Source information: Shown here is a 74-nucleotide sequence from Stegodyphus mimosarum, a member of the family "mir-87 microRNA precursor family". Taxonomically the source falls in Stegodyphus (Eukaryota, Metazoa, Chelicerata, Eresoidea). The family's consensus secondary structure was predicted with RNAalifold. On this family, see Sempere et al., Dev Biol 2003: "Temporal regulation of microRNA expression in Drosophila melanogaster mediated by hormonal signals and broad-Complex gene activity".
[Rfam]
RNA sequence: AUUCUAACCACCUGAAAACUUGUCUCAACCUGGUAAUUUUUUAUAGGUGAGCAAAGUUUCAGGUGCCUAGAGUU
Numbered sequence: 001a002u003u004c005u006a007a008c009c010a011c012c013u014g015a016a017a018a019c020u021u022g023u024c025u026c027a028a029c030c031u032g033g034u035a036a037u038u039u040u041u042u043a044u045a046g047g048u049g050a051g052c053a054a055a056g057u058u059u060c061a062g063g064u065g066c067c068u069a070g071a072g073u074u
Base pairs, nucleotide, nucleotide: 002072003071004070005069006068009065010064011063012062013061014060015059017057020054021053024051025050026049027048029047030046031045